[Rfam]
RNA sequence: GCCUCCUUAGCUCAGUUGGCCAGAGCAUCGCUCUUGUAAAGCGAGGGUCGUCGGUUCGAAUCCGACAGGGGGCU
Numbered sequence: 001g002c003c004u005c006c007u008u009a010g011c012u013c014a015g016u017u018g019g020c021c022a023g024a025g026c027a028u029c030g031c032u033c034u035u036g037u038a039a040a041g042c043g044a045g046g047g048u049c050g051u052c053g054g055u056u057c058g059a060a061u062c063c064g065a066c067a068g069g070g071g072g073c074u
Stems, first nucleotide, its partner, number of pairs: 001073007010026004028044005050066005